int-alpA RNA: a 75-nucleotide RNA from Comamonas antarctica.
Nucleotides: 075
Stems, first nucleotide, its partner, number of pairs: 002062007011030007036053005043075005
Number, partner (000 for none) and nucleotide at each position: 001000a002062c003061c004060c005059c006058a007057g008056c009000u010000a011030g012029g013028u014027c015026g016025g017024g018000c019000c020000g021000c022000a023000a024017u025016c026015c027014g028013a029012c030011u031000g032000a033000a034000a035000a036053g037052g038051c039050a040049a041000g042000c043075c044074c045073c046072c047071g048000g049040u050039u051038g052037c053036c054000c055000u056008g057007c058006u059005g060004g061003g062002g063000c064000u065000u066000u067000c068000u069000g070000c071047c072046g073045g074044g075043g
The organism belongs to Comamonas, within Bacteria. Rfam classes the family as a small RNA. Rfam 15.1 lists 577 matches to the family in 491 species. About the family: Acidobacteria (1 example), Planctomycetes (1 example), Proteobacteria. The match comes from Rfam's covariance-model search (42 bits).